[Rfam]
RNA: mir-34 microRNA precursor family
Organism: Eumeta japonica
Nucleotides: 072
Stems, first nucleotide, its partner, number of pairs: 003070004009064002012061005018055005025049007
Number, partner (000 for none) and nucleotide at each position: 001000a002000c003070c004069g005068c006067g007000u008000u009064g010063g011000c012061a013060g014059u015058g016057u017000g018055g019054u020053u021052a022051g023000c024000u025049g026048g027047u028046u029045g030044u031043u032000u033000a034000g035000a036000u037000u038000g039000g040000u041000u042000u043031a044030a045029c046028a047027g048026c049025c050000u051022c052021u053020a054019a055018c056000g057016a058015c059014a060013c061012u062000g063010c064009u065000u066000c067006u068005g069004c070003g071000u072000u